[Rfam]
RNA: Lysine riboswitch aptamer
Organism: Staphylococcus gallinarum
RNA sequence: ACUUGAGUUAGAGGUUGCGUUUUUAAUGAGUAUGCAUUCAGAUACCGAAUGGGGUAAUAGACGAAUGUAGAAAGGUGAAAUCGCCGAAACAAACUUUACCCAUUUAUUUGGUUUGUUGGGUCAGUUAUCGAAAGAAACUGAACUGUCACAUAUGUGAUGUGCUACCUAUAUA
Numbered sequence: 001a002c003u004u005g006a007g008u009u010a011g012a013g014g015u016u017g018c019g020u021u022u023u024u025a026a027u028g029a030g031u032a033u034g035c036a037u038u039c040a041g042a043u044a045c046c047g048a049a050u051g052g053g054g055u056a057a058u059a060g061a062c063g064a065a066u067g068u069a070g071a072a073a074g075g076u077g078a079a080a081u082c083g084c085c086g087a088a089a090c091a092a093a094c095u096u097u098a099c100c101c102a103u104u105u106a107u108u109u110g111g112u113u114u115g116u117u118g119g120g121u122c123a124g125u126u127a128u129c130g131a132a133a134g135a136a137a138c139u140g141a142a143c144u145g146u147c148a149c150a151u152a153u154g155u156g157a158u159g160u161g162c163u164a165c166c167u168a169u170a171u172a
Stems, first nucleotide, its partner, number of pairs: 006167002009164003017084003021080005033069007088117008098107001118144002121141006128134001146157004